[Rfam]
RNA sequence: CUCUUAUCCCGAGCUGGUGGAGGGACAGGCCCAAUGAAACCCAGCAACCUGCUGUAGAAGAAAUACCUGUGAAAGGUGAAUUCUCCUUAAGCGAAGGUGCUAACCUGAAGCAAGGAAACAGUCCUUGAACGAUAAGAG
Numbered sequence: 001c002u003c004u005u006a007u008c009c010c011g012a013g014c015u016g017g018u019g020g021a022g023g024g025a026c027a028g029g030c031c032c033a034a035u036g037a038a039a040c041c042c043a044g045c046a047a048c049c050u051g052c053u054g055u056a057g058a059a060g061a062a063a064u065a066c067c068u069g070u071g072a073a074a075g076g077u078g079a080a081u082u083c084u085c086c087u088u089a090a091g092c093g094a095a096g097g098u099g100c101u102a103a104c105c106u107g108a109a110g111c112a113a114g115g116a117a118a119c120a121g122u123c124c125u126u127g128a129a130c131g132a133u134a135a136g137a138g
Stems, first nucleotide, its partner, number of pairs: 001138008013042001016041003022032003026110001029106001043101004048097002050093004111127006
SAM riboswitch aptamer (S box leader): a 138-nucleotide RNA sequence from Mesobacillus campisalis. Rfam describes the family as follows. The SAM riboswitch is found upstream of a number of genes which code for proteins involved in methionine or cysteine biosynthesis in Gram-positive bacteria. Taxonomically the source falls in Mesobacillus (Bacteria, Bacillati, Bacillota, Caryophanales).